[Rfam]
RNA sequence: ACAACCCGCAAGGCCGACGCGUAACGCGCCGCUUGUGCAAGCCCAGCCGCCCAGCAAGGGGUUGGCGCUCAUGGGUAACAA
Numbered sequence: 001a002c003a004a005c006c007c008g009c010a011a012g013g014c015c016g017a018c019g020c021g022u023a024a025c026g027c028g029c030c031g032c033u034u035g036u037g038c039a040a041g042c043c044c045a046g047c048c049g050c051c052c053a054g055c056a057a058g059g060g061g062u063u064g065g066c067g068c069u070c071a072u073g074g075g076u077a078a079c080a081a
Stems, first nucleotide, its partner, number of pairs: 004076004013066003018028003031047003049062004
Annotation:
Twister_sister_ribozyme: an 81-nucleotide RNA.